[Rfam]
The record is a 153-nucleotide RNA sequence from Kluyvera genomosp. 3, which matches "Short Intergenic Abundant RNA" in Rfam. Pairs were carried over by alignment from the consensus structure, which was predicted with PFOLD. It scores 93 bits against the family's covariance model. Rfam describes the family as follows. This family contains multiple ncRNA from E. coli that were identified in a large scale screen of E. coli, were they were called candidates 43,55 and 61. These RNAs have also been identified by other groups and called QUAD RNAs. Lineage of the source: Bacteria > Pseudomonadati > Gammaproteobacteria > Enterobacterales > Kluyvera.
RNA sequence: UUGACAGCGUCGUUUUUUUGACCUACAUUCCUCGGUAAAGGGUGAGGGAGGCGAACCUCCCUCCUGCGUUCAUACUGUUAAUAUGCUGGCAGAGCGAUGAUUAACAGAAUCAGCAGUAUGAUGAAGAGUCUCAUCAUUGUCCCUUUCCUUUCA
Numbered sequence: 001u002u003g004a005c006a007g008c009g010u011c012g013u014u015u016u017u018u019u020g021a022c023c024u025a026c027a028u029u030c031c032u033c034g035g036u037a038a039a040g041g042g043u044g045a046g047g048g049a050g051g052c053g054a055a056c057c058u059c060c061c062u063c064c065u066g067c068g069u070u071c072a073u074a075c076u077g078u079u080a081a082u083a084u085g086c087u088g089g090c091a092g093a094g095c096g097a098u099g100a101u102u103a104a105c106a107g108a109a110u111c112a113g114c115a116g117u118a119u120g121a122u123g124a125a126g127a128g129u130c131u132c133a134u135c136a137u138u139g140u141c142c143c144u145u146u147c148c149u150u151u152c153a
Base pairs, nucleotide, nucleotide: 034147035146038145039144040143041142042141046061047060048059064116065115066114067113117139118137119136120135121134122133123132